This 107-nucleotide RNA from Beta vulgaris belongs to the Rfam family "Small nucleolar RNA snoR99". Rfam 15.1 lists 733 matches to the family in 222 species. A search with the family's covariance model found it, with a score of 64 bits. The base pairs follow the family's consensus structure, which was predicted with WAR.
RNA sequence: UUGCUAAAGGGAUGGAAUAGUAAGUCCUGAAAUUUAAUUAUUCAGUCAUCCGUCACUUUGUCAGCAAUAUUUUCUUUUUAUUGCUGAUCAUCAAAGAUGACAAAUUU
Number, nucleotide and partner (000 for none) at each position: 001u000002u000003g000004c000005u000006a000007a000008a000009g000010g000011g000012a000013u000014g000015g000016a000017a000018u000019a000020g000021u000022a000023a000024g000025u000026c000027c000028u000029g000030a000031a000032a000033u000034u000035u000036a000037a000038u000039u000040a000041u000042u000043c000044a000045g101046u100047c099048a098049u097050c096051c000052g000053u000054c000055a000056c000057u000058u000059u000060g088061u087062c086063a085064g084065c083066a082067a081068u000069a000070u000071u000072u000073u000074c000075u000076u000077u000078u000079u000080a000081u067082u066083g065084c064085u063086g062087a061088u060089c000090a000091u000092c000093a000094a000095a000096g050097a049098u048099g047100a046101c045102a000103a000104a000105u000106u000107u000

It is annotated as an H/ACA-box small nucleolar RNA.